[Rfam]
RNA sequence: UUUGUCGGUGAUGAUAUUCUGGCUCCCUCUACUGAAAGCUGUGAGGAUACUGCCAUCGUUACCCAAUUUAUUGCUGAGAUAGA
Numbered sequence: 001u002u003u004g005u006c007g008g009u010g011a012u013g014a015u016a017u018u019c020u021g022g023c024u025c026c027c028u029c030u031a032c033u034g035a036a037a038g039c040u041g042u043g044a045g046g047a048u049a050c051u052g053c054c055a056u057c058g059u060u061a062c063c064c065a066a067u068u069u070a071u072u073g074c075u076g077a078g079a080u081a082g083a
Stems, first nucleotide, its partner, number of pairs: 001083006